A member of the RNA family "Bacillaceae-1 RNA" from Pontibacillus chungwhensis, 67 nucleotides long. NCBI's taxonomy places the organism under Bacteria, Bacillota, Bacilli, Caryophanales, Pontibacillus chungwhensis. The family's RNA type in Rfam is small RNA.

RNA sequence: GAAGGAGGAAGUUCGACUAAAACCGUCACGUCCUGUGACAACGUCGAACGACCCCACGUCGUGUGGG
Numbered sequence: 001g002a003a004g005g006a007g008g009a010a011g012u013u014c015g016a017c018u019a020a021a022a023c024c025g026u027c028a029c030g031u032c033c034u035g036u037g038a039c040a041a042c043g044u045c046g047a048a049c050g051a052c053c054c055c056a057c058g059u060c061g062u063g064u065g066g067g
Stems, first nucleotide, its partner, number of pairs: 011049007025039005053067005